The family of this 154-nucleotide sequence from Bagarius yarrelli is "Small nucleolar RNA SNORD97". A reference for the family is Vitali et al. (2003), "Identification of 13 novel human modification guide RNAs", Nucleic Acids Res. A search with the family's covariance model found it, with a score of 80 bits. The family's consensus secondary structure was predicted with WAR. By type it is a C/D-box small nucleolar RNA. Lineage of the source: Eukaryota > Gnathostomata > Clupeocephala > Sisorinae > Bagarius. Its family is annotated with nucleolus and RNA processing in the Gene Ontology.
[Rfam]
RNA sequence: GCACCCAAUGAUUAUAAAAAGACGCGUUAUUCUGAGGGUUUUUGCUAGAUGUCAGCUUUUCUACCUUUUUUCUCUUUUUUUCUCCUCUCUUCCUGUUCUUUUCUCUUAUGCUGACAACUAGUCCUUUGACUGCGAUUAUGAGAUAUGAGGGUGC
Dot-bracket structure: ((((((............................(((((.......................))))).................................................................................))))))